[Rfam]
This 80-nucleotide RNA belongs to the Rfam family "RAGATH-18 RNA".
RNA sequence: CUUGCGGACUGUUAUAUCAAAUGAGAGUAGAUUUUUAUGCUACAAGCAUGAAAACAAAAUCAGACAGGUUGAAACAAGAA
Numbered sequence: 001c002u003u004g005c006g007g008a009c010u011g012u013u014a015u016a017u018c019a020a021a022u023g024a025g026a027g028u029a030g031a032u033u034u035u036u037a038u039g040c041u042a043c044a045a046g047c048a049u050g051a052a053a054a055c056a057a058a059a060u061c062a063g064a065c066a067g068g069u070u071g072a073a074a075c076a077a078g079a080a
Stems, first nucleotide, its partner, number of pairs: 001078004009067005022062003030055001032053001034052007